[Rfam]
RNA sequence: GCGCGGGUGGCGAAAUCGGUAGACGCCCGAGACUUAAAAUCUCGUAUCCGUAAGGGUGUGCGGGUUCGAUCCCCGCCCCGCGCA
Number, nucleotide and partner (000 for none) at each position: 001g083002c082003g081004c080005g079006g078007g077008u000009g000010g026011c025012g024013a000014a000015a000016u000017c000018g000019g000020u000021a000022g000023a000024c012025g011026c010027c000028c044029g043030a042031g041032a040033c000034u000035u000036a000037a000038a000039a000040u032041c031042u030043c029044g028045u000046a000047u000048c000049c000050g000051u000052a000053a000054g000055g000056g000057u000058g000059u000060g076061c075062g074063g073064g072065u000066u000067c000068g000069a000070u000071c000072c064073c063074c062075g061076c060077c007078c006079c005080g004081c003082g002083c001084a000